RNA: TPP riboswitch aptamer (THI element)
Organism: Methylocella tundrae
RNA sequence: ACAUUCGCCCUGGGGUGCUGCUGGAGACGGCGGCUGAGAUCACACCCAUAGAACCUGAAUCUGGAUAAUGCCAGCGCAGGGACCGGCAAGUCGGCUGAAG
Numbered sequence: 001a002c003a004u005u006c007g008c009c010c011u012g013g014g015g016u017g018c019u020g021c022u023g024g025a026g027a028c029g030g031c032g033g034c035u036g037a038g039a040u041c042a043c044a045c046c047c048a049u050a051g052a053a054c055c056u057g058a059a060u061c062u063g064g065a066u067a068a069u070g071c072c073a074g075c076g077c078a079g080g081g082a083c084c085g086g087c088a089a090g091u092c093g094g095c096u097g098a099a100g
Stems, first nucleotide, its partner, number of pairs: 007087003011048004016042001017034005054080004061074004